[Rfam]
RNA sequence: CUCGAGUUAAUCCGUCAGCGAGGUAUAGAGUUCCUAUGCGUUCGGAUAAAAUAUUCCAUAGGAACUUCAUACCGUGCUCUUGGAUUGCUUGGA
Numbered sequence: 001c002u003c004g005a006g007u008u009a010a011u012c013c014g015u016c017a018g019c020g021a022g023g024u025a026u027a028g029a030g031u032u033c034c035u036a037u038g039c040g041u042u043c044g045g046a047u048a049a050a051a052u053a054u055u056c057c058a059u060a061g062g063a064a065c066u067u068c069a070u071a072c073c074g075u076g077c078u079c080u081u082g083g084a085u086u087g088c089u090u091g092g093a
Base pairs, nucleotide, nucleotide: 012083013082014081017078018077019076020075022073023072024071025070026069028067029066030065031064032063033062034061035060036059037058
A member of the RNA family "mir-276 microRNA precursor family" from Aedes aegypti, 93 nucleotides long. The base pairs follow the family's consensus structure, which was predicted with RNAalifold. Its family is annotated with RISC complex and miRNA-mediated post-transcriptional gene silencing in the Gene Ontology.